[Rfam]
RNA sequence: GACCGGUACGCGUCAACCGGACAUGGUGGCAUAUGGAACGGAGAUGGUUUUUCCGGUUUCCCGCUCCGGCCAACGAAUUGGCAGCCGAGUCAUUAUCCCACCCGUACC
Number, nucleotide and partner (000 for none) at each position: 001g000002a000003c000004c000005g000006g107007u106008a105009c104010g000011c000012g022013u021014c020015a000016a000017c000018c000019g000020g014021a013022c012023a000024u000025g102026g101027u100028g098029g097030c000031a000032u000033a093034u092035g091036g090037a000038a000039c068040g067041g066042a065043g064044a000045u000046g062047g000048u000049u000050u000051u000052u000053c000054c000055g000056g000057u000058u000059u000060c000061c000062c046063g000064c043065u042066c041067c040068g039069g082070c081071c080072a000073a000074c000075g000076a000077a000078u000079u000080g071081g070082c069083a000084g000085c000086c000087g000088a000089g000090u036091c035092a034093u033094u000095a000096u000097c029098c028099c000100a027101c026102c025103c000104g009105u008106a007107c006108c000